[Rfam]
RNA sequence: GCAUGCUGUGAGCUUCUUUACAGUGUUGCCUUGUGGCAUGGCGAUCAAGCAGCAUUGUACAGGGCUAUCAUUGCAUGC
Number, nucleotide and partner (000 for none) at each position: 001g000002c000003a000004u000005g000006c000007u000008g000009u000010g000011a000012g000013c000014u064015u063016c062017u061018u000019u059020a058021c057022a056023g055024u054025g053026u052027u051028g050029c000030c049031u048032u047033g046034u000035g000036g000037c000038a000039u000040g000041g000042c000043g000044a000045u000046c033047a032048a031049g030050c028051a027052g026053c025054a024055u023056u022057g021058u020059a019060c000061a017062g016063g015064g014065c000066u000067a000068u000069c000070a000071u000072u000073g000074c000075a000076u000077g000078c000

A member of the RNA family "mir-103/107 microRNA precursor family" from Cyprinodon variegatus, 78 nucleotides long. Rfam's curators write: This family consists of the mammalian microRNA (miRNA) precursors mir-103 and mir107. Rfam links the family to the GO terms RISC complex and miRNA-mediated post-transcriptional gene silencing.